[Rfam]
RNA sequence: GGCGAGUACUGCGGGAGCCCGUAACAGCCGUCACAAAGCGGCCGGGCUGAGAGGGCAUCAGAGCCGACCGCUUGACCUGAUCCGGCUAGUACCGGCGUAGGGAAGGAAACACAUGGUCCU
Numbered sequence: 001g002g003c004g005a006g007u008a009c010u011g012c013g014g015g016a017g018c019c020c021g022u023a024a025c026a027g028c029c030g031u032c033a034c035a036a037a038g039c040g041g042c043c044g045g046g047c048u049g050a051g052a053g054g055g056c057a058u059c060a061g062a063g064c065c066g067a068c069c070g071c072u073u074g075a076c077c078u079g080a081u082c083c084g085g086c087u088a089g090u091a092c093c094g095g096c097g098u099a100g101g102g103a104a105g106g107a108a109a110c111a112c113a114u115g116g117u118c119c120u
Stems, first nucleotide, its partner, number of pairs: 007107001009105002011071004017047005054065003076101004082095004